[Rfam]
RNA sequence: UGCAAAUGAUGUUGACUUUUUGCUGUCUGAAUACACUUGAUGACAACAACCACCAAGAUCGCUGAUGCA
Numbered sequence: 001u002g003c004a005a006a007u008g009a010u011g012u013u014g015a016c017u018u019u020u021u022g023c024u025g026u027c028u029g030a031a032u033a034c035a036c037u038u039g040a041u042g043a044c045a046a047c048a049a050c051c052a053c054c055a056a057g058a059u060c061g062c063u064g065a066u067g068c069a
Base pairs, nucleotide, nucleotide: 001069002068003067004066

A member of the RNA family "Small nucleolar RNA SNORD24" from Indicator maculatus, 69 nucleotides long. For this family Rfam cites "Site-specific ribose methylation of preribosomal RNA: a novel function for small nucleolar RNAs" (Kiss-Laszlo et al., Cell, 1996). The match comes from Rfam's covariance-model search (54 bits). The source organism's lineage runs through Eukaryota, Chordata, Craniata, Gnathostomata and Indicator. Gene Ontology terms of the family: nucleolus and RNA processing. The base pairs follow the family's consensus structure, which was predicted with PFOLD.